Shown here is a 92-nucleotide RNA from Cupriavidus plantarum, a member of the family "Selenocysteine transfer RNA". Lineage of the source: Bacteria > Betaproteobacteria > Burkholderiales > Burkholderiaceae > Cupriavidus. Pairs were carried over by alignment from the consensus structure, which is taken from published work. A search with the family's covariance model found it, with a score of 71 bits.
RNA sequence: GGAAGGCACGCGUAUCCGGUGAUGCGGCCGGACUUCAAAUCCGGUUGGGGGCGUCAGACGUUCCCAGGUAGGUUCGACUCCUGCUGCUUUCC
Numbered sequence: 001g002g003a004a005g006g007c008a009c010g011c012g013u014a015u016c017c018g019g020u021g022a023u024g025c026g027g028c029c030g031g032a033c034u035u036c037a038a039a040u041c042c043g044g045u046u047g048g049g050g051g052c053g054u055c056a057g058a059c060g061u062u063c064c065c066a067g068g069u070a071g072g073u074u075c076g077a078c079u080c081c082u083g084c085u086g087c088u089u090u091c092c
Base pairs, nucleotide, nucleotide: 001092002091003090004089005088006087007086008085011026012025013024014023015022016021027045028044029043030042031041032040047065048064049063050062051061069083070082071081072080